The record is a 99-nucleotide RNA sequence from Prodigiosinella confusarubida, which matches "t44 RNA" in Rfam. It scores 85 bits against the family's covariance model. The literature on the family includes a 2002 paper in Nucleic Acids Res by Tjaden et al., "Transcriptome analysis of Escherichia coli using high-density oligonucleotide probe arrays".
[Rfam]
RNA sequence: CUCACUAUGUGUAUAUAACACACACGUGUCGACACAUUUGCCGGGGUGCUCUGGUGCUUGCAUUCAGAGUCGGUGUAAUGGGACACGUGGAGGCAUAAC
Numbered sequence: 001c002u003c004a005c006u007a008u009g010u011g012u013a014u015a016u017a018a019c020a021c022a023c024a025c026g027u028g029u030c031g032a033c034a035c036a037u038u039u040g041c042c043g044g045g046g047u048g049c050u051c052u053g054g055u056g057c058u059u060g061c062a063u064u065c066a067g068a069g070u071c072g073g074u075g076u077a078a079u080g081g082g083a084c085a086c087g088u089g090g091a092g093g094c095a096u097a098a099c
Stems, first nucleotide, its partner, number of pairs: 023089008035080004040074004048070005